A member of the RNA family "mir-274 microRNA precursor family" from Drosophila mojavensis, 106 nucleotides long. On this family, see Stark et al., Genome Res 2007: "Systematic discovery and characterization of fly microRNAs using 12 Drosophila genomes". The base pairs follow the family's consensus structure, which was predicted with RNAalifold. The organism belongs to mojavensis species complex, within Eukaryota.

RNA sequence: UGUGUUGCAGUUUCGGUUUGUGACCGACACUAACGGGUAGUUGAGGCAUCUCGUAUUCGCUGUUUUAUACUCGUUUUUGCGAUCACAAAUUCUGAAAUUGCAACGA
Number, nucleotide and partner (000 for none) at each position: 001u000002g000003u105004g104005u103006u102007g101008c100009a099010g098011u000012u000013u095014c094015g093016g000017u089018u088019u087020g086021u085022g084023a083024c000025c081026g080027a000028c079029a078030c000031u000032a075033a074034c073035g072036g071037g070038u069039a068040g000041u000042u000043g000044a000045g000046g000047c000048a000049u000050c000051u000052c000053g000054u000055a000056u000057u000058c000059g000060c000061u000062g000063u000064u000065u000066u000067a000068u039069a038070c037071u036072c035073g034074u033075u032076u000077u000078u029079g028080c026081g025082a000083u023084c022085a021086c020087a019088a018089a017090u000091u000092c000093u015094g014095a013096a000097a000098u010099u009100g008101c007102a006103a005104c004105g003106a000